[Rfam]
RNA: Mammalian CPEB3 ribozyme
Organism: Alligator sinensis
RNA sequence: AUAUGUGUAGGGGGGCCAUAGCAGAGGUGUUUACGAUGCGACCCCUAUCAGGUAAUACCUGGUAAUAUCUAUGAAUUCUGCU
Numbered sequence: 001a002u003a004u005g006u007g008u009a010g011g012g013g014g015g016c017c018a019u020a021g022c023a024g025a026g027g028u029g030u031u032u033a034c035g036a037u038g039c040g041a042c043c044c045c046u047a048u049c050a051g052g053u054a055a056u057a058c059c060u061g062g063u064a065a066u067a068u069c070u071a072u073g074a075a076u077u078c079u080g081c082u
Base pairs, nucleotide, nucleotide: 012045013044014043015042017040020082021081022080023079024078025077026076027039028038029037050070051069052068053067054066